[Rfam]
RNA sequence: GACUUUCUGAAUCCGCGCCGGGGUUUAGUCAGAUACUAGGCCAUCAGUACUGACGAGACUUCCAUGAUAAGUGAAGCG
Numbered sequence: 001g002a003c004u005u006u007c008u009g010a011a012u013c014c015g016c017g018c019c020g021g022g023g024u025u026u027a028g029u030c031a032g033a034u035a036c037u038a039g040g041c042c043a044u045c046a047g048u049a050c051u052g053a054c055g056a057g058a059c060u061u062c063c064a065u066g067a068u069a070a071g072u073g074a075a076g077c078g
Stems, first nucleotide, its partner, number of pairs: 003076004008071001011068003017062001020061003024058003028054003

A member of the RNA family "mir-3492 microRNA precursor family" from Schistosoma haematobium, 78 nucleotides long. The source organism's lineage runs through Eukaryota, Bilateria, Lophotrochozoa, Rhabditophora and Schistosoma. The base pairs follow the family's consensus structure, which was predicted with RNAalifold.